RNA sequence: GCCACAUGAUGAUCUGAGUAGAUGCCGCAGCCCUCGGGCCGUGAUGACCUGCUAUCUAUCACCCUUCUCUGAUGGCU
Numbered sequence: 001g002c003c004a005c006a007u008g009a010u011g012a013u014c015u016g017a018g019u020a021g022a023u024g025c026c027g028c029a030g031c032c033c034u035c036g037g038g039c040c041g042u043g044a045u046g047a048c049c050u051g052c053u054a055u056c057u058a059u060c061a062c063c064c065u066u067c068u069c070u071g072a073u074g075g076c077u
Base pairs, nucleotide, nucleotide: 001076002075003074004073030039031038032037
A member of the RNA family "Small nucleolar RNA SNORD83" from Cottoperca gobio, 77 nucleotides long. Its family is annotated with nucleolus and RNA processing in the Gene Ontology. Taxonomically the source falls in Cottoperca (Eukaryota, Euteleostomi, Neoteleostei, Notothenioidei). The match comes from Rfam's covariance-model search (44 bits).